[Rfam]
Rfam assigns this 439-nucleotide part of an RNA from Paenibacillus durus to the family "Bacterial large subunit ribosomal RNA".
RNA sequence: CUCCCCGAAAUAGCUUUAGGGCUAGCCUCGGUGAUUAAGAGUAAUGGAGGUAGAGCACUGAUUGGGUGCGGGGCCCGCAAGGGUUACCAAGCUCAGUCAAACUCCGAAUGCCAUCUACUUGUCGCCGGGAGUCAGACAGUGAGUGCUAAGAUCCAUUGUCAAAAGGGAAACAGCCCAGACCAUCAGCUAAGGUCCCCAAGUGUGUGUUAAGUGGGAAAGGAUGUGGAGUUGCACAGACAACCAGGAUGUUGGCUUAGAAGCAGCCACCAUUGAAAGAGUGCGUAAUAGCUCACUGGUCGAGUGACUCUGCGCCGAAAAUGUAACGGGGCUAAACACACCACCGAAGCUAUGGCUUGAUGCUUGCAUCAGGGGUAGGGGAGCGUUGUAUGCGGGUUGAAGGUUGACUGUAAGGACAGCUGGACUGCAUACAAGUGAGAAU
Numbered sequence: 001c002u003c004c005c006c007g008a009a010a011u012a013g014c015u016u017u018a019g020g021g022c023u024a025g026c027c028u029c030g031g032u033g034a035u036u037a038a039g040a041g042u043a044a045u046g047g048a049g050g051u052a053g054a055g056c057a058c059u060g061a062u063u064g065g066g067u068g069c070g071g072g073g074c075c076c077g078c079a080a081g082g083g084u085u086a087c088c089a090a091g092c093u094c095a096g097u098c099a100a101a102c103u104c105c106g107a108a109u110g111c112c113a114u115c116u117a118c119u120u121g122u123c124g125c126c127g128g129g130a131g132u133c134a135g136a137c138a139g140u141g142a143g144u145g146c147u148a149a150g151a152u153c154c155a156u157u158g159u160c161a162a163a164a165g166g167g168a169a170a171c172a173g174c175c176c177a178g179a180c181c182a183u184c185a186g187c188u189a190a191g192g193u194c195c196c197c198a199a200g201u202g203u204g205u206g207u208u209a210a211g212u213g214g215g216a217a218a219g220g221a222u223g224u225g226g227a228g229u230u231g232c233a234c235a236g237a238c239a240a241c242c243a244g245g246a247u248g249u250u251g252g253c254u255u256a257g258a259a260g261c262a263g264c265c266a267c268c269a270u271u272g273a274a275a276g277a278g279u280g281c282g283u284a285a286u287a288g289c290u291c292a293c294u295g296g297u298c299g300a301g302u303g304a305c306u307c308u309g310c311g312c313c314g315a316a317a318a319u320g321u322a323a324c325g326g327g328g329c330u331a332a333a334c335a336c337a338c339c340a341c342c343g344a345a346g347c348u349a350u351g352g353c354u355u356g357a358u359g360c361u362u363g364c365a366u367c368a369g370g371g372g373u374a375g376g377g378g379a380g381c382g383u384u385g386u387a388u389g390c391g392g393g394u395u396g397a398a399g400g401u402u403g404a405c406u407g408u409a410a411g412g413a414c415a416g417c418u419g420g421a422c423u424g425c426a427u428a429c430a431a432g433u434g435a436g437a438a439u
Base pairs, nucleotide, nucleotide: 001380002379003378004377005376006375011024012023013022014021015020026131027129028128029127030126031125032124033123038122039120040119041118042117043116044114045113046112047111053105054103055102059099060098061097063095064094065093066092070088071087072085073084074083075082076081135160136159137158138157139156140155141154143152144151165176166175167174180352181351182350183349185348186347187346191342192341193340200339202338203337204336205335206334207333219313220312223310224309225308226307227306228305229304230303231302232301240297241296242295243294244293246270247269248268251265252264253263271275276291280289281288353370354369355368356367357366358365359364381434383431384430385429386428387427388426389425390424391423392422399418400417401416402415403414405412406411